[Rfam]
RNA: mir-17 microRNA precursor family
RNA sequence: UCUGCAGCACUAAAGUGCUUAUAGUGCAGGUAGUGUCUCGGGAUCUACUGCAUCGUGAGCACUUACAGUGCUGCCGG
Numbered sequence: 001u002c003u004g005c006a007g008c009a010c011u012a013a014a015g016u017g018c019u020u021a022u023a024g025u026g027c028a029g030g031u032a033g034u035g036u037c038u039c040g041g042g043a044u045c046u047a048c049u050g051c052a053u054c055g056u057g058a059g060c061a062c063u064u065a066c067a068g069u070g071c072u073g074c075c076g077g
Stems, first nucleotide, its partner, number of pairs: 004074004009069003013064010024053004029049005